[Rfam]
RNA sequence: CCCCGCAGGUGAACUGCGGGGACAUCUUCUGACUGCAACAAGGGGUCUGCCCGUG
Numbered sequence: 001c002c003c004c005g006c007a008g009g010u011g012a013a014c015u016g017c018g019g020g021g022a023c024a025u026c027u028u029c030u031g032a033c034u035g036c037a038a039c040a041a042g043g044g045g046u047c048u049g050c051c052c053g054u055g
Base pairs, nucleotide, nucleotide: 001021002020003019004018005017006016007015008014
RNA: ClpQY promoter